[Rfam]
RNA sequence: CUUGGGUAUGGCGACAUGGUGCCUAGCACAUCGCAGGCAAAAUUUUUGGGUCCAUCUGCUCACUUAGUGGUGUCUUGGUCAUUGCCUUGCCUGUACCAGUCAUUGUGUCUAAC
Numbered sequence: 001c002u003u004g005g006g007u008a009u010g011g012c013g014a015c016a017u018g019g020u021g022c023c024u025a026g027c028a029c030a031u032c033g034c035a036g037g038c039a040a041a042a043u044u045u046u047u048g049g050g051u052c053c054a055u056c057u058g059c060u061c062a063c064u065u066a067g068u069g070g071u072g073u074c075u076u077g078g079u080c081a082u083u084g085c086c087u088u089g090c091c092u093g094u095a096c097c098a099g100u101c102a103u104u105g106u107g108u109c110u111a112a113c
Stems, first nucleotide, its partner, number of pairs: 002112001004110002007107005013101003018096001021094002036076002039073001049061002
RNA: Potassium channel RNA editing signal